[Rfam]
RNA sequence: CGUUGAUAUGAUGAUAACAUUUGUUAAAAAAAAGUGUUGAUUAAGAAAAAGUCAUACUAUAAUUAUCUGAUCAAUG
Numbered sequence: 001c002g003u004u005g006a007u008a009u010g011a012u013g014a015u016a017a018c019a020u021u022u023g024u025u026a027a028a029a030a031a032a033a034g035u036g037u038u039g040a041u042u043a044a045g046a047a048a049a050a051g052u053c054a055u056a057c058u059a060u061a062a063u064u065a066u067c068u069g070a071u072c073a074a075u076g
Base pairs, nucleotide, nucleotide: 001076002075003074004073005072006071
This 76-nucleotide RNA sequence from Elaeis guineensis belongs to the Rfam family "Small nucleolar RNA Z155".
By type it is a C/D-box small nucleolar RNA.
Rfam links the family to the GO terms RNA processing and nucleolus.
The match comes from Rfam's covariance-model search (54 bits).